[Rfam]
RNA: Group II catalytic intron D1-D4-5
Organism: Sporosarcina limicola
RNA sequence: UAUAACUAAUUAACUGAAAUUCGGAAUGAAAGCCGUCAUCUUGAGCUGAAACGAACUGUCUGAUACUCCUGCGUGCGAUUAAGAAUUAUAGUUUUCAAUCGUGCGAAGCCAGGUAAAGUCGGCUGAAUAUAACCUAAGUUAUAGCUGCUGCAAUAAUAGGGUUAUAGAUAGGUCGGGACGCUAUAAA
Numbered sequence: 001u002a003u004a005a006c007u008a009a010u011u012a013a014c015u016g017a018a019a020u021u022c023g024g025a026a027u028g029a030a031a032g033c034c035g036u037c038a039u040c041u042u043g044a045g046c047u048g049a050a051a052c053g054a055a056c057u058g059u060c061u062g063a064u065a066c067u068c069c070u071g072c073g074u075g076c077g078a079u080u081a082a083g084a085a086u087u088a089u090a091g092u093u094u095u096c097a098a099u100c101g102u103g104c105g106a107a108g109c110c111a112g113g114u115a116a117a118g119u120c121g122g123c124u125g126a127a128u129a130u131a132a133c134c135u136a137a138g139u140u141a142u143a144g145c146u147g148c149u150g151c152a153a154u155a156a157u158a159g160g161g162u163u164a165u166a167g168a169u170a171g172g173u174c175g176g177g178a179c180g181c182u183a184u185a186a187a
Base pairs, nucleotide, nucleotide: 018057020055021054022053023052031047032046033045058179059178060177061176068113069112070111071110072105073104074103075102076101077100078099079098080097082095083094084093085092120175121174122173123172124171128166129165130164131163132162133161134159135158136157